A member of the RNA family "Bacterial RNase P class A" from Rhodoferax saidenbachensis, 439 nucleotides long. It scores 187 bits against the family's covariance model. Rfam classes the family as a ribozyme.
RNA sequence: GAAGCCCGCCAGACCACCGCUGGUGCAAUCUGGGAAACCAGGCACUGGAGGAACGUCCGGACUGCACAGGGCAGCGUAGCAGUUAACGACUGUCCACUGACAAGCUUUCCACGCAAGUGGUGGGCCCUAAGGUGAGGAUUAGAGCAACAGAGACGAGUCAAUGUAGGCAUCCCGUCGGGUGUUCUACGCGUACAGCGCGGCGCAAGCCGUGCCCCGGGCAACCGGGAACGCGUAGCCACCCAAUGCGGGCAAGGCCCGCAUUGGGUGAAACGGGCAAUCUCUACGCGCAGCAAUACCAAGUAGGCACACGUUGACGGGGCCCCCGGAGUGUGCGGGUAGGUAGCACCGAGCCGCUGGGUGACCAGCGGCCCAGAUUAAUGGUGGUCACAUGCGGGGAAACCCGCAUGCACAGAAUCCGGCUUAUCGGUGGGCUUCACAC
Numbered sequence: 001g002a003a004g005c006c007c008g009c010c011a012g013a014c015c016a017c018c019g020c021u022g023g024u025g026c027a028a029u030c031u032g033g034g035a036a037a038c039c040a041g042g043c044a045c046u047g048g049a050g051g052a053a054c055g056u057c058c059g060g061a062c063u064g065c066a067c068a069g070g071g072c073a074g075c076g077u078a079g080c081a082g083u084u085a086a087c088g089a090c091u092g093u094c095c096a097c098u099g100a101c102a103a104g105c106u107u108u109c110c111a112c113g114c115a116a117g118u119g120g121u122g123g124g125c126c127c128u129a130a131g132g133u134g135a136g137g138a139u140u141a142g143a144g145c146a147a148c149a150g151a152g153a154c155g156a157g158u159c160a161a162u163g164u165a166g167g168c169a170u171c172c173c174g175u176c177g178g179g180u181g182u183u184c185u186a187c188g189c190g191u192a193c194a195g196c197g198c199g200g201c202g203c204a205a206g207c208c209g210u211g212c213c214c215c216g217g218g219c220a221a222c223c224g225g226g227a228a229c230g231c232g233u234a235g236c237c238a239c240c241c242a243a244u245g246c247g248g249g250c251a252a253g254g255c256c257c258g259c260a261u262u263g264g265g266u267g268a269a270a271c272g273g274g275c276a277a278u279c280u281c282u283a284c285g286c287g288c289a290g291c292a293a294u295a296c297c298a299a300g301u302a303g304g305c306a307c308a309c310g311u312u313g314a315c316g317g318g319g320c321c322c323c324c325g326g327a328g329u330g331u332g333c334g335g336g337u338a339g340g341u342a343g344c345a346c347c348g349a350g351c352c353g354c355u356g357g358g359u360g361a362c363c364a365g366c367g368g369c370c371c372a373g374a375u376u377a378a379u380g381g382u383g384g385u386c387a388c389a390u391g392c393g394g395g396g397a398a399a400c401c402c403g404c405a406u407g408c409a410c411a412g413a414a415u416c417c418g419g420c421u422u423a424u425c426g427g428u429g430g431g432c433u434u435c436a437c438a439c
Stems, first nucleotide, its partner, number of pairs: 001435010011424001012386007020048007053422001055420001057419005062290004069322004074286005079093005094136001095134004137281002142279002144275002159264001160262005166256003294342004304333006315325003350369008